[Rfam]
RNA: Plant signal recognition particle RNA
RNA sequence: GCUAAAACUCAAUUGCUUAAGUUAUAUUCAAUCCUGAGUGGGGGCUUUAAGGUGAUGGAACGCGGGCUUGGCUUUCCUGGGUCGGAAUCUCUGGUGGUUUGACUCUGGCUUGCCCGUUCCAAGUUGAGAGUUGAGCCAAGGGGGUUGAGUGUAAACUCUGAGCCUCGUGGUUCCUAAAGUAGAGGGUACUUGGUGAGGCUGGUUUCACAGAGCAGCGAAAACCUCUCUUUCUUGACAGUGGAAGGAUAACAAGCUGGAUCUACUCCGAUCCAAACAUGGCUCAGCGAGCUAACCCUAACUGGACCAUCAUCUUU
Numbered sequence: 001g002c003u004a005a006a007a008c009u010c011a012a013u014u015g016c017u018u019a020a021g022u023u024a025u026a027u028u029c030a031a032u033c034c035u036g037a038g039u040g041g042g043g044g045c046u047u048u049a050a051g052g053u054g055a056u057g058g059a060a061c062g063c064g065g066g067c068u069u070g071g072c073u074u075u076c077c078u079g080g081g082u083c084g085g086a087a088u089c090u091c092u093g094g095u096g097g098u099u100u101g102a103c104u105c106u107g108g109c110u111u112g113c114c115c116g117u118u119c120c121a122a123g124u125u126g127a128g129a130g131u132u133g134a135g136c137c138a139a140g141g142g143g144g145u146u147g148a149g150u151g152u153a154a155a156c157u158c159u160g161a162g163c164c165u166c167g168u169g170g171u172u173c174c175u176a177a178a179g180u181a182g183a184g185g186g187u188a189c190u191u192g193g194u195g196a197g198g199c200u201g202g203u204u205u206c207a208c209a210g211a212g213c214a215g216c217g218a219a220a221a222c223c224u225c226u227c228u229u230u231c232u233u234g235a236c237a238g239u240g241g242a243a244g245g246a247u248a249a250c251a252a253g254c255u256g257g258a259u260c261u262a263c264u265c266c267g268a269u270c271c272a273a274a275c276a277u278g279g280c281u282c283a284g285c286g287a288g289c290u291a292a293c294c295c296u297a298a299c300u301g302g303a304c305c306a307u308c309a310u311c312u313u314u
Stems, first nucleotide, its partner, number of pairs: 001045003004028001006023004011018002033042003049313010061301002065296002068292005074287002077284007084271003088267001093263001095262003100258001105257008114245002117243005123236008133173006140166004145161003148157003174179001181226005190219002193216002199210003